[Rfam]
RNA sequence: GUAGCGGACACCGCAAGGUCGCUGUCGUGUUCGACAGUCCGUCUUCUGCGGCUCGCACUGCGGGCCGCAACCGGCACAGCCGGAUUUGCCCAACCCGCCGAUGAAGGGUCAUCGGC
Numbered sequence: 001g002u003a004g005c006g007g008a009c010a011c012c013g014c015a016a017g018g019u020c021g022c023u024g025u026c027g028u029g030u031u032c033g034a035c036a037g038u039c040c041g042u043c044u045u046c047u048g049c050g051g052c053u054c055g056c057a058c059u060g061c062g063g064g065c066c067g068c069a070a071c072c073g074g075c076a077c078a079g080c081c082g083g084a085u086u087u088g089c090c091c092a093a094c095c096c097g098c099c100g101a102u103g104a105a106g107g108g109u110c111a112u113c114g115g116c
Stems, first nucleotide, its partner, number of pairs: 010019003021038006047069009071083004097116006
RNA: Pseudomon-groES RNA